The family of this 155-nucleotide sequence from Populus tomentosa is "MIR2912 microRNA precursor family". A search with the family's covariance model found it, with a score of 103 bits. Pairs were carried over by alignment from the consensus structure, which was predicted with RNAalifold.
[Rfam]
RNA sequence: UCUAGAACUUAAGAUAUGGGCUGAACACUGGACAAUAUCUGGGUUGUAAAACAGAUUCAGACUUCUUUAUUGUUGCUAUAAUUUGAACUUGAAAACGACAUUUUAAAUCUUGGACUCCACAUAAAAUUUUUAAGCCCAUGUCUUAGUUUUUCAUC
Dot-bracket structure: ..(.(((((.((((((((((.((((.(.(.....((....(((.(..((.(..((....(..(....(...(((...........)))...)....).)...))...).))..).)))..))...).)))))..))))))))))))..))).)..
Numbered sequence: 001u002c003u004a005g006a007a008c009u010u011a012a013g014a015u016a017u018g019g020g021c022u023g024a025a026c027a028c029u030g031g032a033c034a035a036u037a038u039c040u041g042g043g044u045u046g047u048a049a050a051a052c053a054g055a056u057u058c059a060g061a062c063u064u065c066u067u068u069a070u071u072g073u074u075g076c077u078a079u080a081a082u083u084u085g086a087a088c089u090u091g092a093a094a095a096c097g098a099c100a101u102u103u104u105a106a107a108u109c110u111u112g113g114a115c116u117c118c119a120c121a122u123a124a125a126a127u128u129u130u131u132a133a134g135c136c137c138a139u140g141u142c143u144u145a146g147u148u149u150u151u152c153a154u155c
Stems, first nucleotide, its partner, number of pairs: 003153001005151003008146002011144010022132004027128001029126001035122002041118003045114001048111002051108001054104002060099001063097001068092001072088003